[Rfam]
RNA sequence: CUUGAUGGAACCGAUCCGAAGCGGCCGCUCCGCGUCACGCCCCUGGCCGUAGGUGGCCAGCAGCGCGUUGGCCUC
Numbered sequence: 001c002u003u004g005a006u007g008g009a010a011c012c013g014a015u016c017c018g019a020a021g022c023g024g025c026c027g028c029u030c031c032g033c034g035u036c037a038c039g040c041c042c043c044u045g046g047c048c049g050u051a052g053g054u055g056g057c058c059a060g061c062a063g064c065g066c067g068u069u070g071g072c073c074u075c
Stems, first nucleotide, its partner, number of pairs: 016024002031071001038065002043060003047056003

About this RNA:
Rfam assigns this 75-nucleotide RNA from Actinopolyspora mzabensis to the family "ASpks TB sRNA". The match comes from Rfam's covariance-model search (67 bits). Rfam classes the family as an antisense RNA. Pairs were carried over by alignment from the consensus structure, which is taken from published work.